[Rfam]
RNA sequence: GCAUGGAUUUGGAUUUAUGGUGGGUCCCAAUCCAUGGGCUUUCCAUAGUGUACCCCAUGCUACAUUAACUUGCCUCCCCGAACCAUUGGCUGGCCUGGCUUGCUGUAGUGCCAGCCACUGAUGUGGGGGGCACAUGU
Number, nucleotide and partner (000 for none) at each position: 001g060002c059003a058004u057005g055006g054007a000008u052009u000010u000011g000012g000013a000014u000015u048016u047017a046018u045019g044020g043021u000022g041023g040024g039025u037026c036027c000028c000029a000030a000031u000032c000033c000034a000035u000036g026037g025038g000039c024040u023041u022042u000043c020044c019045a018046u017047a016048g015049u000050g000051u000052a008053c000054c006055c005056c000057a004058u003059g002060c001061u000062a000063c000064a000065u000066u000067a000068a000069c000070u000071u000072g000073c130074c129075u128076c127077c126078c125079c000080g000081a000082a000083c000084c120085a119086u000087u000088g000089g115090c114091u113092g112093g111094c110095c108096u107097g000098g000099c000100u000101u000102g000103c000104u000105g000106u000107a096108g095109u000110g094111c093112c092113a091114g090115c089116c000117a000118c000119u085120g084121a000122u000123g000124u000125g078126g077127g076128g075129g074130g073131c000132a000133c000134a000135u000136g000137u000